[Rfam]
Annotation: The family of this 74-nucleotide RNA from Medioppia subpectinata is "tRNA". From the family's description: Transfer RNA (tRNA) molecules are approximately 80 nucleotides in length. Gene Ontology term of the family: triplet codon-amino acid adaptor activity. The organism belongs to Medioppia, within Eukaryota. It is annotated as a transfer RNA.
RNA sequence: UCUCCCAUAACUCAGUUGGAUAGAGUGCUGUGCUAAUAACGCAGAAGUCCUGGGUUCGAGCCCCAGUGGGAGAA
Numbered sequence: 001u002c003u004c005c006c007a008u009a010a011c012u013c014a015g016u017u018g019g020a021u022a023g024a025g026u027g028c029u030g031u032g033c034u035a036a037u038a039a040c041g042c043a044g045a046a047g048u049c050c051u052g053g054g055u056u057c058g059a060g061c062c063c064c065a066g067u068g069g070g071a072g073a074a
Base pairs, nucleotide, nucleotide: 001073002072003071004070005069006068007067010026011025012024013023028044029043030042031041032040050066051065052064053063054062